[Rfam]
RNA sequence: CGCGUCCUUUGUCAGGGGGAGCAUUAUGUCCAAUGAUUGUCUAGAGAGGACAUAGGUGCUGACACCCAUUGAUUUAUUUAUCGCAUCGGGCUUCAUGUCUCGGUGCAAUUUUUGGAAGC
Numbered sequence: 001c002g003c004g005u006c007c008u009u010u011g012u013c014a015g016g017g018g019g020a021g022c023a024u025u026a027u028g029u030c031c032a033a034u035g036a037u038u039g040u041c042u043a044g045a046g047a048g049g050a051c052a053u054a055g056g057u058g059c060u061g062a063c064a065c066c067c068a069u070u071g072a073u074u075u076a077u078u079u080a081u082c083g084c085a086u087c088g089g090g091c092u093u094c095a096u097g098u099c100u101c102g103g104u105g106c107a108a109u110u111u112u113u114g115g116a117a118g119c
Base pairs, nucleotide, nucleotide: 005020006019007018008017009016021059022058023057024056025054026053027052028051029050030049031048037045038044083106084105085104086103087102088101091097
The record is a 119-nucleotide RNA from Frankliniella occidentalis, which matches "U4atac minor spliceosomal RNA" in Rfam. U4atac is an essential component of the minor U12-type spliceosome complex which is required for removal of the rarer class of eukaryotic introns (AT-AC, U12-type). Clan: U4 clan. Rfam 15.1 lists 1,648 matches to the family in 818 species. Rfam links the family to the GO terms U4atac snRNP, spliceosomal tri-snRNP complex assembly and mRNA 5'-splice site recognition. Rfam classes the family as a spliceosomal small nuclear RNA.